[Rfam]
RNA: Plant signal recognition particle RNA
RNA sequence: GUCGAGCCUGGUAACGCGGGCUUGUAAUCCAAGUGGGGACAAUAAGGCGAUGGGACGUUGGGCCGAUCUCUUUGGGCCUGACUCGGAAAGACUAUCUACUGGCCUGCCCGUUCCAAGUCGGGAGUCGAGUGUUCGGACUCGAGCGAAGGCUUGUGGUUCGGACACUCUUAGAGCGGAGGAGACUGCGUGAGGCUGGUUUCACAGAGCAGCGUCCACCUCCCGUUUUCGACGGUGGAAGGAUUACGGGCCGGUGCCUCCCGAGCCCACUAUGACCCAAUAAGCCGGCUCCAAUUGGACCAUCACUUUU
Numbered sequence: 001g002u003c004g005a006g007c008c009u010g011g012u013a014a015c016g017c018g019g020g021c022u023u024g025u026a027a028u029c030c031a032a033g034u035g036g037g038g039a040c041a042a043u044a045a046g047g048c049g050a051u052g053g054g055a056c057g058u059u060g061g062g063c064c065g066a067u068c069u070c071u072u073u074g075g076g077c078c079u080g081a082c083u084c085g086g087a088a089a090g091a092c093u094a095u096c097u098a099c100u101g102g103c104c105u106g107c108c109c110g111u112u113c114c115a116a117g118u119c120g121g122g123a124g125u126c127g128a129g130u131g132u133u134c135g136g137a138c139u140c141g142a143g144c145g146a147a148g149g150c151u152u153g154u155g156g157u158u159c160g161g162a163c164a165c166u167c168u169u170a171g172a173g174c175g176g177a178g179g180a181g182a183c184u185g186c187g188u189g190a191g192g193c194u195g196g197u198u199u200c201a202c203a204g205a206g207c208a209g210c211g212u213c214c215a216c217c218u219c220c221c222g223u224u225u226u227c228g229a230c231g232g233u234g235g236a237a238g239g240a241u242u243a244c245g246g247g248c249c250g251g252u253g254c255c256u257c258c259c260g261a262g263c264c265c266a267c268u269a270u271g272a273c274c275c276a277a278u279a280a281g282c283c284g285g286c287u288c289c290a291a292u293u294g295g296a297c298c299a300u301c302a303c304u305u306u307u
Base pairs, nucleotide, nucleotide: 001040002039003038004023005022006021007020008019009018010017028037029036030035044306045305046304047303049301050300051299052298053297056294057293058291059290060289061287062286063285064284065283068281069280072277073276075274076273078271080264082262083261084260085259086258089256090255093253094252099251100250101249102248103247104246105245106244108239109238111237112236113235114234115233117230118229119228120227121226122225123224124223125222127167128166129165130164131163132162133161134160135159136158137157138156139155140153141152142151143150144149168173175220176219177218178217179216185212186211187210188209193204194203195202